[Rfam]
RNA sequence: GACGCGAUGAUGAUUCAUAUAGGUUUUUCGGCAGUGGUGGCAUAUGUCGCCGUGAGCUUUCAAACCAAAAACGACUUCUCUUUCCACUGAGCAUC
Numbered sequence: 001g002a003c004g005c006g007a008u009g010a011u012g013a014u015u016c017a018u019a020u021a022g023g024u025u026u027u028u029c030g031g032c033a034g035u036g037g038u039g040g041c042a043u044a045u046g047u048c049g050c051c052g053u054g055a056g057c058u059u060u061c062a063a064a065c066c067a068a069a070a071a072c073g074a075c076u077u078c079u080c081u082u083u084c085c086a087c088u089g090a091g092c093a094u095c
Base pairs, nucleotide, nucleotide: 001095002094004092005091
Rfam assigns this 95-nucleotide sequence from Triticum urartu to the family "Small nucleolar RNA Z152/R70/R12/". Its family is annotated with RNA processing and nucleolus in the Gene Ontology. The organism belongs to Triticum, within Eukaryota. Pairs were carried over by alignment from the consensus structure, which was predicted with PFOLD.